[Rfam]
The family of this 143-nucleotide RNA from Micromonospora yangpuensis is "c-di-AMP riboswitch aptamer (ydaO/yuaA leader)". It scores 55 bits against the family's covariance model.

RNA sequence: GCGGAACACUCACCACAGGCAUGGAGCGGGGGACCCAGGUUCCACGGUGCACGUCACCUCGGGGUGAAGCCGCCCGAUCCGGGCGGCCGGGCUCCUCGGCCCGAACCCGACAGCUCACCUCGUCGGCGUGGAGGAACCCAUGG
Numbered sequence: 001g002c003g004g005a006a007c008a009c010u011c012a013c014c015a016c017a018g019g020c021a022u023g024g025a026g027c028g029g030g031g032g033a034c035c036c037a038g039g040u041u042c043c044a045c046g047g048u049g050c051a052c053g054u055c056a057c058c059u060c061g062g063g064g065u066g067a068a069g070c071c072g073c074c075c076g077a078u079c080c081g082g083g084c085g086g087c088c089g090g091g092c093u094c095c096u097c098g099g100c101c102c103g104a105a106c107c108c109g110a111c112a113g114c115u116c117a118c119c120u121c122g123u124c125g126g127c128g129u130g131g132a133g134g135a136a137c138c139c140a141u142g143g
Base pairs, nucleotide, nucleotide: 001127002126009023026123027122028121029120030119031118036061062108063107064106070086071085072084073083089102090101091100092099